RNA: SAM riboswitch aptamer (S box leader)
RNA sequence: CUCUUAUUAAGAGAGGUGGAGGGAAGUGCCCGAUGAAACCCAGCAACCGUCAUGUAAAUGAAAUGGUGCCAAAUCACUCAAAGCGUAAAAAAUGCUUUGGAAAAUGAGAG
Numbered sequence: 001c002u003c004u005u006a007u008u009a010a011g012a013g014a015g016g017u018g019g020a021g022g023g024a025a026g027u028g029c030c031c032g033a034u035g036a037a038a039c040c041c042a043g044c045a046a047c048c049g050u051c052a053u054g055u056a057a058a059u060g061a062a063a064u065g066g067u068g069c070c071a072a073a074u075c076a077c078u079c080a081a082a083g084c085g086u087a088a089a090a091a092a093u094g095c096u097u098u099g100g101a102a103a104a105u106g107a108g109a110g
Stems, first nucleotide, its partner, number of pairs: 001110008013041001015040003021031003025078004043069003047066002050061003074102001079099008
Dot-bracket structure: ((((((((....(.(((...(((.[[[[)))......)))).(((.((.(((......)))...)))))....(]]]]((((((((.....))))))))..)))))))))